[Rfam]
RNA: BsrC
Organism: Paenibacillus graminis
RNA sequence: UCCUUCCAAAACGACAAAAGCCCUACCUCUCUUUUGUCCUUACGGCUCCGUGGCCGUGCCAGUGUGAAUCGGAAAACUAUAUUCGAA
Numbered sequence: 001u002c003c004u005u006c007c008a009a010a011a012c013g014a015c016a017a018a019a020g021c022c023c024u025a026c027c028u029c030u031c032u033u034u035u036g037u038c039c040u041u042a043c044g045g046c047u048c049c050g051u052g053g054c055c056g057u058g059c060c061a062g063u064g065u066g067a068a069u070c071g072g073a074a075a076a077c078u079a080u081a082u083u084c085g086a087a
Stems, first nucleotide, its partner, number of pairs: 034067003039062002041058007